[Rfam]
RNA: PyrR binding site
RNA sequence: AAAACCUUUAAGCAUAGUCCAGAGAGGCUAUCAAGGUAACGAUGGAUAAAUAGGGAUUAGUAUGGCUAAGUAUACCCUCUUUUGUUACCUUGGUGUAGCAAAAGAGGGUUUUU
Numbered sequence: 001a002a003a004a005c006c007u008u009u010a011a012g013c014a015u016a017g018u019c020c021a022g023a024g025a026g027g028c029u030a031u032c033a034a035g036g037u038a039a040c041g042a043u044g045g046a047u048a049a050a051u052a053g054g055g056a057u058u059a060g061u062a063u064g065g066c067u068a069a070g071u072a073u074a075c076c077c078u079c080u081u082u083u084g085u086u087a088c089c090u091u092g093g094u095g096u097a098g099c100a101a102a103a104g105a106g107g108g109u110u111u112u113u
Base pairs, nucleotide, nucleotide: 004037005036006035007034008033014031015030016029017028018027019026043068044067045066047064048063050061051060053058072111074109075108076107077106078105079104080103081102082101083100084099085098086097087096088095